[Rfam]
Overview: This 205-nucleotide RNA from Oryza meyeriana belongs to the Rfam family "MIR812 microRNA precursor family". Gene Ontology terms of the family: miRNA-mediated post-transcriptional gene silencing and RISC complex.
RNA sequence: AAUAAAUAACGCAGUUAACUUUUGACACGACAUUUGACCAUUCGUCUUAUUCAAAACAUUUAAGUAAGUAUAAUUUAUUUUGUUGUGACUUGGUUUAUUAUUAAAGAAACUUUAAACAUGAUUUAUAUUUUUGCAUAUUUACACUAAUUUUUUGAAUAAGACGAAUGGUCAAACGUUACGGCAAAAAUCAACGACAUCAUUUAUU
Number, nucleotide and partner (000 for none) at each position: 001a000002a000003u000004a000005a000006a000007u000008a000009a000010c000011g000012c000013a000014g000015u000016u000017a000018a000019c000020u000021u000022u000023u000024g000025a000026c000027a000028c000029g177030a176031c175032a000033u173034u172035u171036g170037a169038c168039c167040a166041u165042u164043c163044g162045u161046c160047u159048u158049a157050u156051u000052c000053a000054a000055a000056a000057c000058a000059u000060u000061u000062a000063a000064g000065u000066a000067a000068g000069u000070a000071u000072a000073a000074u000075u000076u000077a000078u000079u000080u000081u000082g000083u000084u000085g000086u000087g000088a000089c000090u000091u000092g000093g000094u000095u000096u000097a000098u000099u000100a000101u000102u000103a000104a000105a000106g000107a000108a000109a000110c000111u000112u000113u000114a000115a000116a000117c000118a000119u000120g000121a000122u000123u000124u000125a000126u000127a000128u000129u000130u000131u000132u000133g000134c000135a000136u000137a000138u000139u000140u000141a000142c000143a000144c000145u000146a000147a000148u000149u000150u000151u000152u000153u000154g000155a000156a050157u049158a048159a047160g046161a045162c044163g043164a042165a041166u040167g039168g038169u037170c036171a035172a034173a033174c000175g031176u030177u029178a000179c000180g000181g000182c000183a000184a000185a000186a000187a000188u000189c000190a000191a000192c000193g000194a000195c000196a000197u000198c000199a000200u000201u000202u000203a000204u000205u000